[Rfam]
RNA sequence: UUCUUAUCGAGAGAGGCGGAGGGACUGGCCCGAUGAUACCUCAGCAACAGGCAAUAUGUACUGUGCUAAUUCCAACAAGCAGCAAGCUUGAGAGAUAAGAA
Number, nucleotide and partner (000 for none) at each position: 001u101002u100003c099004u098005u097006a096007u095008c094009g000010a000011g000012a000013g042014a041015g040016g039017c000018g000019g000020a000021g031022g030023g029024a000025c000026u074027g073028g072029c023030c022031c021032g000033a000034u000035g000036a000037u000038a000039c016040c015041u014042c013043a067044g066045c065046a064047a000048c063049a062050g000051g059052c058053a057054a000055u000056a000057u053058g052059u051060a000061c000062u049063g048064u046065g045066c044067u043068a000069a000070u000071u093072c028073c027074a026075a000076c090077a089078a088079g087080c086081a000082g000083c000084a000085a000086g080087c079088u078089u077090g076091a000092g000093a071094g008095a007096u006097a005098a004099g003100a002101a001
RNA: SAM riboswitch aptamer (S box leader)